[Rfam]
RNA: JUMPstart RNA
RNA sequence: CAGCACGUUGGAAGCUGUAAUCCAAGGGCGGUAGCCUU
Numbered sequence: 001c002a003g004c005a006c007g008u009u010g011g012a013a014g015c016u017g018u019a020a021u022c023c024a025a026g027g028g029c030g031g032u033a034g035c036c037u038u
Stems, first nucleotide, its partner, number of pairs: 008025005